RNA sequence: CCUCCUUUGGGGAGUAGCCUGCUUCCGCCCAGGAAGCGCCUGCGUCAACACACUCGGCACAUCCCCGUGCCGUGGCGCAGGCAGCCCGACCUUCGGGCCU
Number, nucleotide and partner (000 for none) at each position: 001c000002c000003u000004c000005c000006u000007u000008u000009g000010g000011g000012g000013a000014g000015u000016a000017g000018c000019c000020u000021g037022c036023u035024u000025c000026c000027g000028c000029c000030c000031a000032g000033g000034a000035a023036g022037c021038g082039c081040c080041u079042g078043c077044g076045u075046c074047a073048a000049c000050a000051c000052a000053c000054u000055c072056g071057g070058c069059a068060c000061a000062u000063c000064c000065c000066c000067g000068u059069g058070c057071c056072g055073u047074g046075g045076c044077g043078c042079a041080g040081g039082c038083a000084g000085c000086c000087c000088g000089a000090c000091c000092u000093u000094c000095g000096g000097g000098c000099c000100u000